[Rfam]
RNA: DUF1874 RNA
Nucleotides: 096
Stems, first nucleotide, its partner, number of pairs: 006088001008087006018063008038055001040054005065080001067078004
Number, partner (000 for none) and nucleotide at each position: 001000g002000u003000c004000a005000g006088c007000c008087c009086a010085g011084c012083c013082c014000a015000a016000g017000u018063g019062c020061c021060a022059c023058g024057g025056u026000c027000a028000u029000c030000c031000a032000a033000g034000g035000u036000a037000a038055g039000u040054g041053c042052g043051g044050c045000c046000a047000a048000a049000g050044g051043c052042c053041g054040c055038c056025g057024c058023c059022g060021u061020g062019g063018u064000c065080c066000c067078u068077c069076c070075c071000g072000c073000a074000a075070g076069g077068g078067a079000g080065g081000a082013g083012g084011g085010c086009u087008g088006g089000g090000u091000g092000g093000a094000g095000g096000a